[Rfam]
RNA: mir-196 microRNA precursor family
Organism: Electrophorus electricus
RNA sequence: UGCGUGGUUUAGGUAGUUUCAUGUUGUUGGGAGCUUCCAGGCUCGACGACAAGAAACUGCCUUGAUUACGUC
Numbered sequence: 001u002g003c004g005u006g007g008u009u010u011a012g013g014u015a016g017u018u019u020c021a022u023g024u025u026g027u028u029g030g031g032a033g034c035u036u037c038c039a040g041g042c043u044c045g046a047c048g049a050c051a052a053g054a055a056a057c058u059g060c061c062u063u064g065a066u067u068a069c070g071u072c
Stems, first nucleotide, its partner, number of pairs: 003070007011062009022051010